[Rfam]
RNA sequence: ACACAGGAAAGGAGGUGAUCCGGCUGAUGAUCAAUCACCGGACGUGUGAGGUGGCUGCGGCCUGAGGCCGACGCCACUAGCGUGACGCCGGUUCGCCGGCCAAUCCACAGCAGUCACCCGGCCCGUGGGCUCGUCGGACUCGUCCGACCGACGCCGUCCGCCUCGCGCAGGCGGAGGGAGUCGCCCACGGGCCGUCUGCU
Numbered sequence: 001a002c003a004c005a006g007g008a009a010a011g012g013a014g015g016u017g018a019u020c021c022g023g024c025u026g027a028u029g030a031u032c033a034a035u036c037a038c039c040g041g042a043c044g045u046g047u048g049a050g051g052u053g054g055c056u057g058c059g060g061c062c063u064g065a066g067g068c069c070g071a072c073g074c075c076a077c078u079a080g081c082g083u084g085a086c087g088c089c090g091g092u093u094c095g096c097c098g099g100c101c102a103a104u105c106c107a108c109a110g111c112a113g114u115c116a117c118c119c120g121g122c123c124c125g126u127g128g129g130c131u132c133g134u135c136g137g138a139c140u141c142g143u144c145c146g147a148c149c150g151a152c153g154c155c156g157u158c159c160g161c162c163u164c165g166c167g168c169a170g171g172c173g174g175a176g177g178g179a180g181u182c183g184c185c186c187a188c189g190g191g192c193c194g195u196c197u198g199c200u
Stems, first nucleotide, its partner, number of pairs: 015058003019054001060100003064096001067092004072087002119194012133152005
The family of this 200-nucleotide RNA sequence from Streptomyces qinglanensis is "Actinobacteria sRNA Ms_IGR-5". Pairs were carried over by alignment from the consensus structure. The family's RNA type in Rfam is small RNA.